Source information: mir-190 microRNA precursor family: a 77-nucleotide RNA sequence from Allacma fusca. Rfam links the family to the GO terms RISC complex and miRNA-mediated post-transcriptional gene silencing. For this family Rfam cites "Cloning and expression of new microRNAs from zebrafish" (Kloosterman et al., Nucleic Acids Res, 2006). Pairs were carried over by alignment from the consensus structure, which was predicted with RNAalifold. Lineage of the source: Eukaryota > Mandibulata > Allotriocarida > Collembola > Allacma. The family is grouped with related families in Rfam's "mir-50 clan".
RNA sequence: GUCUCUGUGAGAUAUGUUUGAUAUUCUUGGUUGUACUUUUGAAUUCAACCGGAUUUCAAACAUAUUUUGAUAGCGGC
Numbered sequence: 001g002u003c004u005c006u007g008u009g010a011g012a013u014a015u016g017u018u019u020g021a022u023a024u025u026c027u028u029g030g031u032u033g034u035a036c037u038u039u040u041g042a043a044u045u046c047a048a049c050c051g052g053a054u055u056u057c058a059a060a061c062a063u064a065u066u067u068u069g070a071u072a073g074c075g076g077c
Base pairs, nucleotide, nucleotide: 005073006072007071008070011066012065013064014063015062016061017060018059019058020057021056023054024053025052029050030049031048032047033046